[Rfam]
RNA sequence: CUGGGCUAUGGCGACAUGUACCCGGAGACGUGGUCGGGCAUGCUGGUGGGCGCACUGUGCGCUUUGGCGGGUGUGCUGACCAUUGCCAUGCCCGUGCCCGUCAUUGUCAACAAC
Numbered sequence: 001c002u003g004g005g006c007u008a009u010g011g012c013g014a015c016a017u018g019u020a021c022c023c024g025g026a027g028a029c030g031u032g033g034u035c036g037g038g039c040a041u042g043c044u045g046g047u048g049g050g051c052g053c054a055c056u057g058u059g060c061g062c063u064u065u066g067g068c069g070g071g072u073g074u075g076c077u078g079a080c081c082a083u084u085g086c087c088a089u090g091c092c093c094g095u096g097c098c099c100g101u102c103a104u105u106g107u108c109a110a111c112a113a114c
Stems, first nucleotide, its partner, number of pairs: 002113001004111001008107004013102003018097004037077004049063003
Dot-bracket structure: .(.(...((((.(((..((((...............((((........(((.........)))..........))))................))))..))).))))...).).
The family of this 114-nucleotide RNA from Apteronotus leptorhynchus is "Potassium channel RNA editing signal". It is annotated as a cis-regulatory element. The source organism's lineage runs through Eukaryota, Euteleostomi, Actinopteri, Gymnotiformes and Apteronotus. This family represents a group of sequences related to the human potassium channel Kv1.1 hairpin element which directs the efficient modification of an adenosine to inosine by an adenosine deaminase acting on RNA (ADAR). The ADAR modification causes an isoleucine/valine recoding event which lies in the ion-conducting pore of the potassium channel. It is thought that this editing event targets the process of fast inactivation and allows a more rapid recovery from inactivation at negative potentials.